Notes:
This 130-nucleotide RNA from Mesocricetus auratus belongs to the Rfam family "Small nucleolar RNA SNORA11". A search with the family's covariance model found it, with a score of 94 bits. The family has 35 seed sequences and 2,014 matches in Rfam 15.1. Rfam classes the family as an H/ACA-box small nucleolar RNA. The family's consensus secondary structure was predicted with RNAalifold. The literature on the family includes a 2005 paper in Nucleic Acids Res by Gu et al., "A novel experimental approach for systematic identification of box H/ACA snoRNAs from eukaryotes".
RNA sequence: GGGGUGUUCUCAGAGCAGGGGCCUAGAGAAUGGCUUCUCUGUUUACAAUACACCCAAGAGGAAUCUGGGGCAUUGUAAUGAGGGGCAGGCACAGCACUGCAUCUUCUCUGUGAGCAGAUCCCUUACAUGC
Numbered sequence: 001g002g003g004g005u006g007u008u009c010u011c012a013g014a015g016c017a018g019g020g021g022c023c024u025a026g027a028g029a030a031u032g033g034c035u036u037c038u039c040u041g042u043u044u045a046c047a048a049u050a051c052a053c054c055c056a057a058g059a060g061g062a063a064u065c066u067g068g069g070g071c072a073u074u075g076u077a078a079u080g081a082g083g084g085g086c087a088g089g090c091a092c093a094g095c096a097c098u099g100c101a102u103c104u105u106c107u108c109u110g111u112g113a114g115c116a117g118a119u120c121c122c123u124u125a126c127a128u129g130c
Stems, first nucleotide, its partner, number of pairs: 002055006013044008021034003068122003074116003079112002082105003086099003089095002